[Rfam]
RNA: 7SK RNA
Organism: Liparis tanakae
RNA sequence: GGAUGUGAGGGCGAUCUGGCUGCGACAUCUGUCACCCCAUUGAUCGCUAGGGUUUAUUCGGCUGAUCUGGCUGGCUAGGCGGGUGUCCCCUUCCUCCCUCACCGCUCCAUGUGUGUCCCUCCCGAAGCCCCGCGCUCGGUGAAUGAGGACGAGGUCCCUCCGGCGGACGUCCAUCCUUCGGUGUACCAGUAGCUGCGCUCCCCUGCUAGAACCUCCAAACAAGCUCAAGGCCCAUUUGUAGGAGAAACGUAGGGAAGUUAAGCUCCAAGCGUCAGACACAUCCAAUUGAGGCGCUGCACGUGGCAGUCUGCCUUCCUUU
Numbered sequence: 001g002g003a004u005g006u007g008a009g010g011g012c013g014a015u016c017u018g019g020c021u022g023c024g025a026c027a028u029c030u031g032u033c034a035c036c037c038c039a040u041u042g043a044u045c046g047c048u049a050g051g052g053u054u055u056a057u058u059c060g061g062c063u064g065a066u067c068u069g070g071c072u073g074g075c076u077a078g079g080c081g082g083g084u085g086u087c088c089c090c091u092u093c094c095u096c097c098c099u100c101a102c103c104g105c106u107c108c109a110u111g112u113g114u115g116u117c118c119c120u121c122c123c124g125a126a127g128c129c130c131c132g133c134g135c136u137c138g139g140u141g142a143a144u145g146a147g148g149a150c151g152a153g154g155u156c157c158c159u160c161c162g163g164c165g166g167a168c169g170u171c172c173a174u175c176c177u178u179c180g181g182u183g184u185a186c187c188a189g190u191a192g193c194u195g196c197g198c199u200c201c202c203c204u205g206c207u208a209g210a211a212c213c214u215c216c217a218a219a220c221a222a223g224c225u226c227a228a229g230g231c232c233c234a235u236u237u238g239u240a241g242g243a244g245a246a247a248c249g250u251a252g253g254g255a256a257g258u259u260a261a262g263c264u265c266c267a268a269g270c271g272u273c274a275g276a277c278a279c280a281u282c283c284a285a286u287u288g289a290g291g292c293g294c295u296g297c298a299c300g301u302g303g304c305a306g307u308c309u310g311c312c313u314u315c316c317u318u319u
Stems, first nucleotide, its partner, number of pairs: 001108003005102007013093002018090002024087010035074002037070003042067004046062003116169001118166002121163001122139004127135002141160002147157003192263003198257002201254006213244004219239005284319002288314005293307005